[Rfam]
RNA sequence: GAAACCUCAUCUUGCUCACGUGCCAUCCGGGUGCUGAGCAGUGUUUUUGCAAGAAAGCACAGGCACUCCGCCUGGAUGAGGAGAGAGU
Numbered sequence: 001g002a003a004a005c006c007u008c009a010u011c012u013u014g015c016u017c018a019c020g021u022g023c024c025a026u027c028c029g030g031g032u033g034c035u036g037a038g039c040a041g042u043g044u045u046u047u048u049g050c051a052a053g054a055a056a057g058c059a060c061a062g063g064c065a066c067u068c069c070g071c072c073u074g075g076a077u078g079a080g081g082a083g084a085g086a087g088u
Base pairs, nucleotide, nucleotide: 005081006080007079008078009077010076011075012074015038016037017036020034021033022032023031024030041060042059043058044057045056046055047054048053061073062072063071064070
The family of this 88-nucleotide RNA is "RAGATH-10 RNA". The literature on the family includes a 2015 paper in Nat Chem Biol by Weinberg et al., "New classes of self-cleaving ribozymes revealed by comparative genomics analysis". Rfam classes the family as a small RNA.